Shown here is a 350-nucleotide RNA from Flavonifractor plautii, a member of the family "Bacterial RNase P class A". The base pairs follow the family's consensus structure, which is taken from published work. It is annotated as a ribozyme. The organism belongs to Flavonifractor plautii, within Bacteria. Gene Ontology terms of the family: dimeric ribonuclease P complex, ribonuclease P activity and tRNA processing.
RNA sequence: CAAGCAAGCUGGACAGCCGCGCGGACGGGGCGAAAGGCCUGUCUGUGAGGAAAGUCCGGGCUCCGCAGGGCAAGGAUAACGGGUAACACCCGCCGGGGGCGACCCUAGGAAAAGUGCAACAGAAAUAGUCUGCCGGCCUCUGGCCGGUCAAGGUGGAAAGGUGAGGUAAGAGCUCACCCGACGGCGUGCCAAGCGUCCGUCGCUGUAAACUCUAUCCGGAGCAACGCCGUGGAGGGACAUAUGGUCGGCCCGACCGUCCCGGGGAGGCGGCUGGAGCGUACUGGCAACGGUGCGUCGAGAUAGAUGGCUGUCUUAAAGGACAGAACCCGGCUUACAGGCUUACUUGCAGA
Number, nucleotide and partner (000 for none) at each position: 001c346002a345003a344004g343005c000006a341007a340008g339009c338010u337011g335012g312013a311014c310015a309016g308017c307018c306019g000020c047021g046022c045023g044024g043025a042026c041027g040028g039029g000030g000031c000032g000033a000034a000035a000036g000037g000038c000039c028040u027041g026042u025043c024044u023045g022046u021047g020048a000049g000050g000051a000052a333053a332054g331055u000056c330057c329058g328059g327060g326061c221062u220063c219064c218065g000066c000067a000068g000069g251070g250071c000072a000073a000074g217075g216076a215077u214078a213079a000080c092081g091082g090083g089084u000085a000086a000087c000088a000089c083090c082091c081092g080093c000094c108095g106096g105097g104098g103099g000100c000101g000102a000103c098104c097105c096106u095107a000108g094109g212110a211111a000112a000113a000114g210115u209116g206117c205118a204119a000120c000121a000122g000123a000124a000125a000126u000127a000128g000129u000130c152131u151132g148133c147134c146135g145136g144137c143138c142139u000140c000141u000142g138143g137144c136145c135146g134147g133148u132149c000150a000151a131152g130153g000154u000155g000156g000157a000158a000159a000160g178161g177162u176163g175164a174165g173166g000167u000168a000169a000170g000171a000172g000173c165174u164175c163176a162177c161178c160179c000180g201181a200182c199183g198184g197185c195186g194187u193188g000189c000190c000191a000192a000193g187194c186195g185196u000197c184198c183199g182200u181201c180202g000203c000204u118205g117206u116207a000208a000209a115210c114211u110212c109213u078214a077215u076216c075217c074218g064219g063220a062221g061222c000223a000224a000225c269226g268227c267228c266229g000230u000231g000232g000233a000234g000235g260236g259237a000238c000239a000240u000241a000242u256243g255244g254245u253246c252247g000248g000249c000250c070251c069252g246253a245254c244255c243256g242257u000258c000259c236260c235261g000262g000263g000264g000265a000266g228267g227268c226269g225270g000271c000272u000273g000274g000275a000276g295277c294278g293279u292280a291281c290282u289283g288284g000285c000286a000287a000288c283289g282290g281291u280292g279293c278294g277295u276296c000297g000298a000299g000300a000301u000302a000303g000304a000305u000306g018307g017308c016309u015310g014311u013312c012313u000314u000315a000316a000317a000318g000319g000320a000321c000322a000323g000324a000325a000326c060327c059328c058329g057330g056331c054332u053333u052334a000335c011336a000337g010338g009339c008340u007341u006342a000343c004344u003345u002346g001347c000348a000349g000350a000